[Rfam]
RNA sequence: GAACCCCCUUUUACUUUGCCAAUUGGACUUAUGUUUUCAUUGGUCAUUCAAAUCCUUUUAAAACUCAGGCAAACUGAGUGUCUGUCCUGUAUUCUGUCAGAAGAAACAAAC
Numbered sequence: 001g002a003a004c005c006c007c008c009u010u011u012u013a014c015u016u017u018g019c020c021a022a023u024u025g026g027a028c029u030u031a032u033g034u035u036u037u038c039a040u041u042g043g044u045c046a047u048u049c050a051a052a053u054c055c056u057u058u059u060a061a062a063a064c065u066c067a068g069g070c071a072a073a074c075u076g077a078g079u080g081u082c083u084g085u086c087c088u089g090u091a092u093u094c095u096g097u098c099a100g101a102a103g104a105a106a107c108a109a110a111c
Stems, first nucleotide, its partner, number of pairs: 032052001040051004053104002056101003066089001068086004073081002
RNA: Small nucleolar RNA SNORA27
Organism: Castor canadensis